A member of the RNA family "Manganese Mn2+ riboswitch aptamer (yybP-ykoY)" from Stenotrophomonas terrae, 165 nucleotides long. The base pairs follow the family's consensus structure.

[Rfam]
RNA sequence: CUCCCUUGGGGAGUAGCCUGCUUCCAGCAAUGGAAGCGCCCACAUCAACAUACUCGGCCAGUGCGCCGUGGUGUGGGCAGCCAGACCCGGUUGGCGAGACCAGCGGCAUGCGUGCGCAACUACGGUUGGGCGCGGCGUGUGCCGUUUGUGUCCGCCCGACCCGGU
Numbered sequence: 001c002u003c004c005c006u007u008g009g010g011g012a013g014u015a016g017c018c019u020g021c022u023u024c025c026a027g028c029a030a031u032g033g034a035a036g037c038g039c040c041c042a043c044a045u046c047a048a049c050a051u052a053c054u055c056g057g058c059c060a061g062u063g064c065g066c067c068g069u070g071g072u073g074u075g076g077g078c079a080g081c082c083a084g085a086c087c088c089g090g091u092u093g094g095c096g097a098g099a100c101c102a103g104c105g106g107c108a109u110g111c112g113u114g115c116g117c118a119a120c121u122a123c124g125g126u127u128g129g130g131c132g133c134g135g136c137g138u139g140u141g142c143c144g145u146u147u148g149u150g151u152c153c154g155c156c157c158g159a160c161c162c163g164g165u
Base pairs, nucleotide, nucleotide: 020037021036022035038078039077040076041075042074043073044072045071046070047069055068056067057066058065084165